Rfam assigns this 85-nucleotide sequence from Cnephaeus nilssonii to the family "mir-9215 microRNA precursor family".

RNA sequence: UGAAUUGCUCUGACACUAGGAUGUGUGGCUGCCGUUGGUUAGUGCUAACCAGGCUUGCCCAGGGUCAGUGUCCCCAGUGUUCUGU
Numbered sequence: 001u002g003a004a005u006u007g008c009u010c011u012g013a014c015a016c017u018a019g020g021a022u023g024u025g026u027g028g029c030u031g032c033c034g035u036u037g038g039u040u041a042g043u044g045c046u047a048a049c050c051a052g053g054c055u056u057g058c059c060c061a062g063g064g065u066c067a068g069u070g071u072c073c074c075c076a077g078u079g080u081u082c083u084g085u
Base pairs, nucleotide, nucleotide: 002082003081004080006079007078008077009076012072013071014070015069016068017067019066022063024061025060027059028058029057031054032053033052037050038049039048040047